[Rfam]
RNA: Guanidine-I riboswitch aptamer
Organism: Paenibacillus montanisoli
RNA sequence: GAAAAUGCUGUCUAGGGUUCCGUGGCGUGACAACCAGGCUGGUCCAAGAGGCGGCGUAUGGAGAAUGGCCCACAUGACGCAGAGGGCUUCCGGAAGCUCCAUAUAACACGGAAGGACAAAAGCCUGGGAGAU
Numbered sequence: 001g002a003a004a005a006u007g008c009u010g011u012c013u014a015g016g017g018u019u020c021c022g023u024g025g026c027g028u029g030a031c032a033a034c035c036a037g038g039c040u041g042g043u044c045c046a047a048g049a050g051g052c053g054g055c056g057u058a059u060g061g062a063g064a065a066u067g068g069c070c071c072a073c074a075u076g077a078c079g080c081a082g083a084g085g086g087c088u089u090c091c092g093g094a095a096g097c098u099c100c101a102u103a104u105a106a107c108a109c110g111g112a113a114g115g116a117c118a119a120a121a122g123c124c125u126g127g128g129a130g131a132u
Stems, first nucleotide, its partner, number of pairs: 007055006015045002020042002022039001023036003056104008107127001109130001113125003